[Rfam]
RNA sequence: UAGAUCUCACUCCAGACCAUAUUCUGUACUCCUGAAGAACAGGCACGUAAACGUUUGCCUUAAAACACCCUGUAGCAAUCGAAGUCGGAUUGCGGUACGCCGGGAAAACGACACAGGACGUCAGGAGGGGGUCAGUGGCCGGUACGCUUUUAAUUUAGCGUGGGAUUUUGUCCUAUCCGGGCGAAAAGGGGAAGAGAAAAAUCAAUAACCCGACAAAAGCGUGAAGAUUUUCGCGUAAUAAUAUGCAAAAAUGAUCAGGCUCACUAAUGGUGUGGGAAUAACAAGGAGAAAAAUUGAUGAGUACCGAACUCAAGCUUUCGUUGACCACCACUGUUGUUACUCUGGGCCUGAUCGUUAUCACUGGCCUGAUUGCCGUUCUGCACUAAUUC
Number, nucleotide and partner (000 for none) at each position: 001u000002a000003g000004a000005u000006c000007u000008c000009a000010c000011u000012c000013c000014a000015g133016a132017c131018c130019a000020u128021a000022u000023u028024c000025u000026g000027u000028a023029c000030u126031c125032c124033u123034g122035a121036a000037g000038a000039a000040c000041a000042g096043g000044c094045a060046c000047g058048u057049a056050a055051a000052c000053g000054u000055u050056u049057g048058c047059c000060u045061u000062a000063a000064a000065a000066c000067a000068c000069c000070c000071u000072g000073u000074a000075g093076c092077a091078a090079u089080c000081g000082a000083a000084g000085u000086c000087g000088g000089a079090u078091u077092g076093c075094g044095g000096u042097a000098c000099g000100c116101c000102g114103g000104g000105a000106a000107a000108a000109c000110g000111a000112c000113a000114c102115a000116g100117g000118a000119c000120g000121u035122c034123a033124g032125g031126a030127g000128g020129g000130g018131g017132u016133c015134a000135g000136u000137g000138g000139c000140c000141g000142g000143u000144a000145c196146g000147c194148u193149u000150u164151u163152a000153a161154u160155u000156u000157a000158g000159c000160g154161u153162g000163g151164g150165a000166u000167u000168u000169u000170g000171u189172c188173c000174u000175a000176u184177c183178c000179g000180g000181g000182c000183g177184a176185a000186a000187a000188g172189g171190g000191g000192a000193a148194g147195a000196g145197a000198a000199a000200a000201a000202u000203c000204a000205a000206u000207a000208a000209c000210c000211c000212g000213a000214c000215a000216a000217a000218a000219g000220c000221g000222u000223g000224a000225a000226g000227a000228u000229u000230u000231u000232c000233g000234c000235g000236u000237a000238a000239u000240a000241a000242u000243a000244u000245g000246c000247a000248a000249a000250a000251a000252u000253g000254a000255u000256c000257a000258g000259g000260c000261u000262c000263a000264c000265u284266a000267a000268u000269g000270g279271u278272g000273u000274g000275g000276g000277a000278a271279u270280a000281a000282c000283a000284a265285g000286g000287a000288g000289a000290a000291a000292a000293a000294u000295u000296g000297a000298u000299g000300a000301g000302u000303a000304c000305c000306g000307a000308a000309c000310u000311c000312a000313a000314g000315c000316u000317u000318u000319c000320g000321u000322u000323g000324a000325c000326c000327a000328c000329c000330a000331c000332u000333g000334u000335u000336g000337u000338u000339a000340c000341u000342c000343u000344g000345g000346g000347c000348c000349u000350g000351a000352u000353c000354g000355u000356u000357a000358u000359c000360a000361c000362u000363g000364g000365c000366c000367u000368g000369a000370u000371u000372g000373c000374c000375g000376u000377u000378c000379u000380g000381c000382a000383c000384u000385a000386a000387u000388u000389c000
RNA: Enterobacterial sRNA STnc550
Organism: Trabulsiella odontotermitis